[Rfam]
RNA: Repression of heat shock gene expression (ROSE) element
RNA sequence: CCAGCCGCUCGAUAAUGGGCUGGCUUUGCCGGGAGCGCCGCUUUUGGCAUUCCCGUACCCAUGUUGCUUCAAGGAGGAUAUGGCUAUGGCAA
Numbered sequence: 001c002c003a004g005c006c007g008c009u010c011g012a013u014a015a016u017g018g019g020c021u022g023g024c025u026u027u028g029c030c031g032g033g034a035g036c037g038c039c040g041c042u043u044u045u046g047g048c049a050u051u052c053c054c055g056u057a058c059c060c061a062u063g064u065u066g067c068u069u070c071a072a073g074g075a076g077g078a079u080a081u082g083g084c085u086a087u088g089g090c091a092a
Stems, first nucleotide, its partner, number of pairs: 001023006008017001030055006037048003056086002059083007067076003